[Rfam]
Nucleotides: 080
Base pairs, nucleotide, nucleotide: 006074007073008072009071010070011069013067014066015065016064017063019061020060023057024056025055026054027053028052029051030050031049
Number, partner (000 for none) and nucleotide at each position: 001000u002000g003000c004000c005000u006074g007073a008072g009071a010070g011069g012000a013067g014066g015065c016064a017063a018000g019061a020060u021000g022000u023057u024056g025055g026054c027053a028052u029051a030050g031049c032000u033000g034000u035000a036000g037000c038000a039000u040000u041000u042000g043000a044000a045000u046000c047000c048000u049031g050030c051029u052028g053027u054026g055025c056024c057023a058000a059000a060020g061019u062000g063017u064016u065015g066014c067013c068000a069011u070010c071009u072008u073007u074006c075000u076000u077000g078000u079000c080000u